RNA sequence: CAUUGACGUGAUGAUAUGUUUAUCGGAAUUUCCAUCGUGUCGACUAAAAUUACAGACUACAAUUAUCUGAUCAAUG
Numbered sequence: 001c002a003u004u005g006a007c008g009u010g011a012u013g014a015u016a017u018g019u020u021u022a023u024c025g026g027a028a029u030u031u032c033c034a035u036c037g038u039g040u041c042g043a044c045u046a047a048a049a050u051u052a053c054a055g056a057c058u059a060c061a062a063u064u065a066u067c068u069g070a071u072c073a074a075u076g
Stems, first nucleotide, its partner, number of pairs: 001076006
The record is a 76-nucleotide sequence from Malus domestica, which matches "Small nucleolar RNA Z155" in Rfam. The family's RNA type in Rfam is C/D-box small nucleolar RNA. The match comes from Rfam's covariance-model search (57 bits). On this family, see Chen et al., Nucleic Acids Res 2003: "The high diversity of snoRNAs in plants: identification and comparative study of 120 snoRNA genes from Oryza sativa". Lineage of the source: Eukaryota > Euphyllophyta > rosids > Maleae > Malus.